Background
The family of this 131-nucleotide sequence from Struthidea cinerea is "Small nucleolar RNA SNORA44". The organism belongs to Struthidea, within Eukaryota. Rfam 15.1 lists 1,056 matches to the family in 599 species. By type it is an H/ACA-box small nucleolar RNA. Rfam's curators write: ACA44 is a member of the H/ACA class of snoRNA that guide the sites of modification of uridines to pseudouridines.
RNA sequence: GUGCAUGUUUAUCCAAGAGCUGUGGCUCCACACAAUAGCUGCAGGUCUCCAACAGCAUGCCAGAGCAAUAGGAAGGUCUUUGACUGCUGGGCCUCUUCUGCCUGUGGCUGUCACUCACCCCUCCAAUACAU
Numbered sequence: 001g002u003g004c005a006u007g008u009u010u011a012u013c014c015a016a017g018a019g020c021u022g023u024g025g026c027u028c029c030a031c032a033c034a035a036u037a038g039c040u041g042c043a044g045g046u047c048u049c050c051a052a053c054a055g056c057a058u059g060c061c062a063g064a065g066c067a068a069u070a071g072g073a074a075g076g077u078c079u080u081u082g083a084c085u086g087c088u089g090g091g092c093c094u095c096u097u098c099u100g101c102c103u104g105u106g107g108c109u110g111u112c113a114c115u116c117a118c119c120c121c122u123c124c125a126a127u128a129c130a131u
Base pairs, nucleotide, nucleotide: 013044018040019039020038021037022036023035071124072123073122075120076119086111087110088104089103090102091101